[Rfam]
Nucleotides: 061
Base pairs, nucleotide, nucleotide: 006031007030008029009028010027011026013025016022037061038060039059040058041057042056043055046053047052
Number, partner (000 for none) and nucleotide at each position: 001000c002000a003000a004000a005000c006031u007030g008029u009028u010027a011026c012000c013025g014000c015000a016022a017000g018000c019000a020000c021000u022016u023000c024000a025013c026011g027010u028009a029008a030007c031006a032000a033000a034000a035000g036000c037061c038060g039059g040058g041057u042056c043055u044000u045000a046053c047052g048000g049000u050000a051000a052047c053046g054000c055043a056042g057041g058040c059039c060038c061037g
The family of this 61-nucleotide sequence from Pseudomonas syringae group genomosp. 3 is "Pseudomonas sRNA P36".
It is annotated as a small RNA.
Pairs were carried over by alignment from the consensus structure, which was predicted with RNAalifold.
A reference for the family is Livny et al. (2006), "Identification of 17 Pseudomonas aeruginosa sRNAs and prediction of sRNA-encoding genes in 10 diverse pathogens using the bioinformatic tool sRNAPredict2", Nucleic Acids Res.